[Rfam]
RNA sequence: UUUAAGUUUUUUGUUAUGCACAAAUUUAAGGGAGAUAAGACUUUGGUCUGAUUGUAUAGGAGUUUUUGAACUAAAAAAGGAGCAAUAGCUUCCCUCUUGUUUUAUCAAGAGGGCGUUAUUGCUCCUUU
Numbered sequence: 001u002u003u004a005a006g007u008u009u010u011u012u013g014u015u016a017u018g019c020a021c022a023a024a025u026u027u028a029a030g031g032g033a034g035a036u037a038a039g040a041c042u043u044u045g046g047u048c049u050g051a052u053u054g055u056a057u058a059g060g061a062g063u064u065u066u067u068g069a070a071c072u073a074a075a076a077a078a079g080g081a082g083c084a085a086u087a088g089c090u091u092c093c094c095u096c097u098u099g100u101u102u103u104a105u106c107a108a109g110a111g112g113g114c115g116u117u118a119u120u121g122c123u124c125c126u127u128u
Stems, first nucleotide, its partner, number of pairs: 008035005076128013091113002094111005
Dot-bracket structure: .......(((((..................)))))........................................(((((((((((((..((.(((((........)))))))..)))))))))))))